The family of this 78-nucleotide RNA sequence from Durio zibethinus is "Small nucleolar RNA Z155".
The base pairs follow the family's consensus structure.
On this family, see Chen et al., Nucleic Acids Res 2003: "The high diversity of snoRNAs in plants: identification and comparative study of 120 snoRNA genes from Oryza sativa".
RNA sequence: GAUUGAAAUGAUGAUAUCUUAUUCUCUGAAAAAUAUAAUGUGGAUUAAAAAAAUCAUACUAAAAUUAUCUGAUCAUUU
Dot-bracket structure: ((.(((..................................................................))).))